c-di-GMP-I riboswitch aptamer: a 96-nucleotide RNA from Alkaliphilus metalliredigens.
It scores 61 bits against the family's covariance model.
Rfam links the family to the GO term cyclic-di-GMP binding.

[Rfam]
RNA sequence: AGAAUGUAAAGGCAAACCAUUGCAAACAAUGGGACGCAAAGCCAGGAACCUAAAGUGUGUUAUAAAAAAAUAUACCAAGAUCGUCCGACUGCCAUA
Dot-bracket structure: ...........((...((((((....))))))...))..((.(.((((.(....(((((((.......)))))))...).)..)))).))......